[Rfam]
A member of the RNA family "Acido-Lenti-1 RNA" from Luteolibacter ambystomatis, 46 nucleotides long. Lineage of the source: Bacteria > Pseudomonadati > Verrucomicrobiota > Verrucomicrobiales > Luteolibacter. Rfam classes the family as a small RNA. Pairs were carried over by alignment from the consensus structure, which is taken from published work.
RNA sequence: CCUAGGCCUUGCGGCCCAGGCUGGUAUGGGACGGGCCGUUGGCCCU
Numbered sequence: 001c002c003u004a005g006g007c008c009u010u011g012c013g014g015c016c017c018a019g020g021c022u023g024g025u026a027u028g029g030g031a032c033g034g035g036c037c038g039u040u041g042g043c044c045c046u
Stems, first nucleotide, its partner, number of pairs: 001020003005016004033045005